[Rfam]
RNA sequence: CGGGACCGGAGCGGACAGGCUUCAGCCCACAAGUGGAGGCUCCGAUCUCCCACCUGGCGGUCCUCCGGGCCGCGGGUCAUCGGUCAGGCUGCGCCCCGCGGUGUACCGCGGCGGUGCUCCCGGUCUGUGAGGAGCCCCGCCUGUGUCCCGUCCGGGGCGUUUUUG
Numbered sequence: 001c002g003g004g005a006c007c008g009g010a011g012c013g014g015a016c017a018g019g020c021u022u023c024a025g026c027c028c029a030c031a032a033g034u035g036g037a038g039g040c041u042c043c044g045a046u047c048u049c050c051c052a053c054c055u056g057g058c059g060g061u062c063c064u065c066c067g068g069g070c071c072g073c074g075g076g077u078c079a080u081c082g083g084u085c086a087g088g089c090u091g092c093g094c095c096c097c098g099c100g101g102u103g104u105a106c107c108g109c110g111g112c113g114g115u116g117c118u119c120c121c122g123g124u125c126u127g128u129g130a131g132g133a134g135c136c137c138c139g140c141c142u143g144u145g146u147c148c149c150g151u152c153c154g155g156g157g158c159g160u161u162u163u164u165g
Stems, first nucleotide, its partner, number of pairs: 004085006013023002025077004030056002033053004037048002057073007093158006099150003107145003110141005116135005